[Rfam]
RNA sequence: AUAAAAAGCACUAUUGAGUGCAGCGUUGAUGAAGAGAGAAAACCCACCCUCAACAAUUGGGUUUCAUCAGGGCUGCAUUCAAUAAUGCCUUCG
Numbered sequence: 001a002u003a004a005a006a007a008g009c010a011c012u013a014u015u016g017a018g019u020g021c022a023g024c025g026u027u028g029a030u031g032a033a034g035a036g037a038g039a040a041a042a043c044c045c046a047c048c049c050u051c052a053a054c055a056a057u058u059g060g061g062u063u064u065c066a067u068c069a070g071g072g073c074u075g076c077a078u079u080c081a082a083u084a085a086u087g088c089c090u091u092c093g
Stems, first nucleotide, its partner, number of pairs: 006090001008088003013083012026070003030066005
Shown here is a 93-nucleotide RNA from Amborella trichopoda, a member of the family "MIR397 microRNA precursor family". The organism belongs to Amborella, within Eukaryota. Rfam 15.1 lists 496 matches to the family in 218 species. Its family is annotated with miRNA-mediated post-transcriptional gene silencing and RISC complex in the Gene Ontology. The match comes from Rfam's covariance-model search (57 bits).